Shown here is a 162-nucleotide RNA sequence from Ensete ventricosum, a member of the family "U1 spliceosomal RNA". The base pairs follow the family's consensus structure, which is taken from published work. Gene Ontology terms of the family: mRNA 5'-splice site recognition, pre-mRNA 5'-splice site binding and U1 snRNP. Lineage of the source: Eukaryota > Mesangiospermae > Liliopsida > Musaceae > Ensete. It scores 126 bits against the family's covariance model.

Nucleotides: 162
Stems, first nucleotide, its partner, number of pairs: 012120004016048005023042003027038001049089004059078002062075002091115003094111003098107002136161005143154004
Number, partner (000 for none) and nucleotide at each position: 001000a002000u003000a004000c005000u006000u007000a008000c009000c010000u011000g012120g013119a014118c015117g016048g017047g018046g019045u020044c021000u022000a023042c024041g025040g026000u027038c028000g029000a030000u031000c032000a033000a034000u035000a036000a037000g038027g039000c040025c041024c042023g043000u044020g045019g046018c047017u048016u049089a050088g051087g052086g053000u054000a055000g056000u057000g058000g059078u060077c061000u062075c063074c064000a065000u066000u067000g068000c069000a070000c071000a072000u073000g074063g075062g076000a077060g078059g079000c080000g081000u082000g083000u084000u085000g086052c087051u088050c089049u090000a091115c092114c093113a094111u095110c096109u097000c098107c099106c100000c101000a102000a103000a104000g105000u106099g107098g108000g109096a110095g111094a112000g113093u114092g115091g116000c117015c118014g119013u120012c121000a122000u123000a124000a125000u126000u127000u128000g129000u130000g131000g132000u133000a134000g135000c136161g137160g138159g139158g140157g141000u142000a143154c144153g145152c146151g147000u148000c149000c150000g151146c152145g153144c154143g155000g156000c157140c158139c159138c160137u161136u162000c